Rfam assigns this 359-nucleotide part of an RNA from Halapricum desulfuricans to the family "Archaeal large subunit ribosomal RNA". Pairs were carried over by alignment from the consensus structure, which is taken from published work. Lineage of the source: Archaea > Methanobacteriati > Methanobacteriota > Halobacteriales > Halapricum. It scores 2854 bits against the family's covariance model.
[Rfam]
RNA sequence: CGGGAGCAACCGGCGUUAGGGAAUUCGGCAAUUUGGCCCCGUAAGUUCGCGAUAAGGGGUACCUGCCUCGGGAAGAGGCAGGUCGCAGUGACUUGGAGGCUCGGACUGUCUAGUAACAACAUAGGUGACCGCAAAUCCGUAAGGACUCGUACGGUCACUGAAUCCUGCCCAGUGCGGGUAUCUGAACACCUAGUACAAUAGGACGAAGGACCCGUCAACGGCGGGGGUAACUAUGACCCUCUUAAGGUAGCGUAGUACCUUGUCGCUUCAGUAGCGACUCGCAUGAAUGGAUUAACCAGAGCCUCGCUGUCCCAACGCUGGGCCCGGUGAACUGUACAUUCCAGUGCGGAGUCUGGAGA
Numbered sequence: 001c002g003g004g005a006g007c008a009a010c011c012g013g014c015g016u017u018a019g020g021g022a023a024u025u026c027g028g029c030a031a032u033u034u035g036g037c038c039c040c041g042u043a044a045g046u047u048c049g050c051g052a053u054a055a056g057g058g059g060u061a062c063c064u065g066c067c068u069c070g071g072g073a074a075g076a077g078g079c080a081g082g083u084c085g086c087a088g089u090g091a092c093u094u095g096g097a098g099g100c101u102c103g104g105a106c107u108g109u110c111u112a113g114u115a116a117c118a119a120c121a122u123a124g125g126u127g128a129c130c131g132c133a134a135a136u137c138c139g140u141a142a143g144g145a146c147u148c149g150u151a152c153g154g155u156c157a158c159u160g161a162a163u164c165c166u167g168c169c170c171a172g173u174g175c176g177g178g179u180a181u182c183u184g185a186a187c188a189c190c191u192a193g194u195a196c197a198a199u200a201g202g203a204c205g206a207a208g209g210a211c212c213c214g215u216c217a218a219c220g221g222c223g224g225g226g227g228u229a230a231c232u233a234u235g236a237c238c239c240u241c242u243u244a245a246g247g248u249a250g251c252g253u254a255g256u257a258c259c260u261u262g263u264c265g266c267u268u269c270a271g272u273a274g275c276g277a278c279u280c281g282c283a284u285g286a287a288u289g290g291a292u293u294a295a296c297c298a299g300a301g302c303c304u305c306g307c308u309g310u311c312c313c314a315a316c317g318c319u320g321g322g323c324c325c326g327g328u329g330a331a332c333u334g335u336a337c338a339u340u341c342c343a344g345u346g347c348g349g350a351g352u353c354u355g356g357a358g359a
Stems, first nucleotide, its partner, number of pairs: 001326004010321008019312003036060005045050001061083009084088001096305007103297002107121003124159008132149001136145003162292004167222003172219002174215005181210003189202004223241006242246001262278006340357005